[Rfam]
RNA sequence: UUACCUGGUAGAGGUGCUGUUUAUAAUAAGUAAGAAAAGGGAGCUUUUUUUGCAUGGCAUGGAUUUUUUCUGAAAGGUAUGAUAGCCGAAGGAAUAAGGGACGCAAAGACUUAUUUCUGGGUAUGCAUAAAAUAUAUGCAUAACUGUCACAGUAGUGGAGCGCUACAGGGUUU
Numbered sequence: 001u002u003a004c005c006u007g008g009u010a011g012a013g014g015u016g017c018u019g020u021u022u023a024u025a026a027u028a029a030g031u032a033a034g035a036a037a038a039g040g041g042a043g044c045u046u047u048u049u050u051u052g053c054a055u056g057g058c059a060u061g062g063a064u065u066u067u068u069u070c071u072g073a074a075a076g077g078u079a080u081g082a083u084a085g086c087c088g089a090a091g092g093a094a095u096a097a098g099g100g101a102c103g104c105a106a107a108g109a110c111u112u113a114u115u116u117c118u119g120g121g122u123a124u125g126c127a128u129a130a131a132a133u134a135u136a137u138g139c140a141u142a143a144c145u146g147u148c149a150c151a152g153u154a155g156u157g158g159a160g161c162g163c164u165a166c167a168g169g170g171u172u173u
Stems, first nucleotide, its partner, number of pairs: 006168001008166004016086006023080003033071008090118009119145002122142008147158004